[Rfam]
The family of this 82-nucleotide RNA sequence from Populus trichocarpa is "Small nucleolar RNA Z122".
The family's RNA type in Rfam is C/D-box small nucleolar RNA.
Taxonomically the source falls in Populus (Eukaryota, Viridiplantae, Tracheophyta, Spermatophyta).
The base pairs follow the family's consensus structure, which was predicted with PFOLD.
Rfam 15.1 lists 822 matches to the family in 247 species.

Nucleotides: 082
Stems, first nucleotide, its partner, number of pairs: 001082007
Number, partner (000 for none) and nucleotide at each position: 001082u002081u003080u004079g005078g006077g007076a008000a009000a010000u011000g012000a013000u014000g015000c016000c017000u018000a019000g020000a021000u022000u023000c024000a025000a026000a027000c028000a029000g030000a031000g032000g033000c034000g035000c036000c037000a038000g039000c040000u041000g042000u043000a044000u045000a046000c047000g048000c049000u050000g051000a052000u053000u054000a055000a056000u057000c058000u059000a060000u061000u062000g063000c064000a065000c066000g067000g068000c069000a070000g071000u072000c073000c074000g075000a076007u077006c078005c079004c080003a081002a082001a